[Rfam]
RNA: mir-1 microRNA precursor family
RNA sequence: ACCCAAAAUACAUACUUCUUUACAUUCCAUAGCACUGAAUGUUCAUAUGGGUACAUAAAGAAGUAUGUGCUCUGAGU
Numbered sequence: 001a002c003c004c005a006a007a008a009u010a011c012a013u014a015c016u017u018c019u020u021u022a023c024a025u026u027c028c029a030u031a032g033c034a035c036u037g038a039a040u041g042u043u044c045a046u047a048u049g050g051g052u053a054c055a056u057a058a059a060g061a062a063g064u065a066u067g068u069g070c071u072c073u074g075a076g077u
Stems, first nucleotide, its partner, number of pairs: 007071001009069014027050005